RNA sequence: AUACUUACCUGGCAGGGGAGAUACCAUGAUCACAGGGGUUUUCCCAGGGCAAGUCUUGUGCAUUGCAAUCCGUAUGUGCUGACCCUGCGAUUUCUCAAAUGUGGGGAACUUGACUCUGCUUUAUUUGUGCUGGUGAGGGACUGUGUUUGUGGGCUCCCCUG
Numbered sequence: 001a002u003a004c005u006u007a008c009c010u011g012g013c014a015g016g017g018g019a020g021a022u023a024c025c026a027u028g029a030u031c032a033c034a035g036g037g038g039u040u041u042u043c044c045c046a047g048g049g050c051a052a053g054u055c056u057u058g059u060g061c062a063u064u065g066c067a068a069u070c071c072g073u074a075u076g077u078g079c080u081g082a083c084c085c086u087g088c089g090a091u092u093u094c095u096c097a098a099a100u101g102u103g104g105g106g107a108a109c110u111u112g113a114c115u116c117u118g119c120u121u122u123a124u125u126u127g128u129g130c131u132g133g134u135g136a137g138g139g140a141c142u143g144u145g146u147u148u149g150u151g152g153g154c155u156c157c158c159c160u161g
Stems, first nucleotide, its partner, number of pairs: 012119004016045006023039003027035001046086004053080001055078001057076005088112003091108003094104002135160001137158004142153001144151002
Annotation:
Rfam assigns this 161-nucleotide sequence from Molossus molossus to the family "U1 spliceosomal RNA". Its family is annotated with mRNA 5'-splice site recognition, U1 snRNP and pre-mRNA 5'-splice site binding in the Gene Ontology. For this family Rfam cites "The uRNA database" (Zwieb, Nucleic Acids Res, 1997). A search with the family's covariance model found it, with a score of 90 bits. U1 is a small nuclear RNA (snRNA) component of the spliceosome (involved in pre-mRNA splicing). Its 5' end forms complementary base pairs with the 5' splice junction, thus defining the 5' donor site of an intron. There are significant differences in sequence and secondary structure between metazoan and yeast U1 snRNAs, the latter being much longer (568 nucleotides as compared to 164 nucleotides in human). Nevertheless, secondary structure predictions suggest that all U1 snRNAs share a 'common core' consisting of helices I, II, the proximal region of III, and IV. This family does not contain the larger yeast sequences.